[Rfam]
Nucleotides: 217
Base pairs, nucleotide, nucleotide: 001038002037003035005033006032007031013027014026015025016024017023018022043069044068045067046066048064049063050062051061052060078216079215080214081213082212097204098203099202100201101200102199103198104197105196106195107194108193110167111166112165113164120156121155122154123153124152126150127149128148129147130146131145132143133142134141135140169190170189171188172187173186175184176183
Number, partner (000 for none) and nucleotide at each position: 001038a002037c003035g004000a005033c006032c007031u008000u009000a010000c011000u012000u013027g014026a015025a016024c017023a018022g019000g020000a021000u022018c023017u024016g025015u026014u027013c028000u029000a030000u031007a032006g033005g034000a035003u036000c037002g038001u039000a040000c041000c042000u043069c044068u045067g046066u047000a048064u049063c050062c051061u052060u053000u054000a055000u056000c057000a058000c059000u060052a061051a062050g063049g064048a065000g066046a067045c068044a069043g070000g071000a072000a073000c074000c075000u076000a077000a078216g079215c080214c081213u082212g083000g084000u085000g086000g087000a088000u089000g090000a091000a092000u093000c094000a095000u096000g097204a098203c099202c100201g101200u102199g103198u104197g105196a106195u107194c108193a109000u110167a111166g112165c113164g114000u115000g116000a117000u118000u119000a120156u121155u122154g123153g124152c125000u126150g127149u128148g129147a130146u131145g132143g133142a134141u135140c136000g137000u138000c139000a140135g141134a142133u143132c144000a145131u146130a147129u148128c149127a150126c151000u152124g153123c154122u155121g156120a157000a158000g159000a160000g161000g162000a163000u164113c165112g166111u167110u168000u169190c170189c171188u172187a173186g174000c175184c176183a177000c178000u179000g180000a181000c182000c183176u184175g185000u186173c187172u188171a189170g190169g191000a192000a193108u194107g195106a196105u197104c198103a199102u200101g201100c202099g203098g204097u205000u206000g207000u208000c209000u210000g211000a212082c213081a214080g215079g216078c217000u

A member of the RNA family "Plant small nucleolar RNA U3" from Salix koriyanagi, 217 nucleotides long. Its Rfam clan is "U3 clan". Its family is annotated with RNA processing and nucleolus in the Gene Ontology. The match comes from Rfam's covariance-model search (197 bits). From the family's description: Small nucleolar RNAs (snoRNAs) are involved in the processing and modification of rRNA in the nucleolus. There are two main classes of snoRNAs: the box C/D class, and the box H/ACA class. U3 snoRNA is a member of the box C/D class. Indeed, the box C/D element is a subset of the six short sequence elements found in all U3 snoRNAs, namely boxes A, A', B, C, C', and D. The U3 snoRNA secondary structure is characterised by a small 5' domain (with boxes A and A'), and a larger 3' domain (with boxes B, C, C', and D), the two domains being linked by a single-stranded hinge.